[Rfam]
Nucleotides: 220
Stems, first nucleotide, its partner, number of pairs: 009204003015200004
Number, partner (000 for none) and nucleotide at each position: 001000u002000c003000c004000c005000c006000c007000a008000c009204a010203g011202u012000u013000c014000u015200c016199c017198g018197a019000u020000u021000c022000c023000a024000g025000u026000u027000u028000u029000c030000c031000c032000g033000u034000a035000a036000a037000g038000g039000a040000a041000u042000g043000u044000c045000c046000u047000u048000g049000g050000u051000g052000g053000c054000c055000g056000c057000u058000c059000a060000g061000g062000u063000g064000u065000u066000c067000g068000g069000u070000u071000c072000u073000u074000c075000c076000g077000c078000a079000g080000u081000a082000c083000g084000u085000c086000g087000c088000a089000g090000c091000u092000u093000c094000g095000a096000g097000u098000c099000c100000u101000g102000u103000a104000u105000c106000a107000g108000g109000a110000g111000c112000c113000u114000u115000c116000u117000c118000a119000a120000g121000c122000u123000u124000u125000g126000c127000c128000g129000c130000g131000c132000a133000u134000g135000g136000g137000a138000u139000u140000a141000c142000u143000g144000c145000g146000g147000a148000u149000u150000u151000c152000g153000g154000g155000g156000u157000u158000u159000u160000u161000a162000a163000c164000c165000c166000c167000a168000c169000c170000u171000u172000u173000u174000c175000c176000g177000g178000c179000g180000c181000c182000u183000a184000g185000a186000g187000u188000g189000a190000a191000c192000u193000g194000g195000u196000c197018u198017c199016g200015g201000a202011a203010c204009u205000u206000a207000a208000c209000c210000c211000u212000a213000a214000g215000u216000a217000u218000a219000c220000a
A member of the RNA family "Ascomycota telomerase RNA" from Neurospora crassa, 220 nucleotides of a longer RNA. A reference for the family is Qi et al. (2013), "The common ancestral core of vertebrate and fungal telomerase RNAs", Nucleic Acids Res. Rfam links the family to the GO terms telomere maintenance via telomerase, telomerase activity and telomerase catalytic core complex. Rfam 15.1 lists 475 matches to the family in 456 species. Taxonomically the source falls in Neurospora (Eukaryota, saccharomyceta, Sordariomycetidae, Sordariaceae).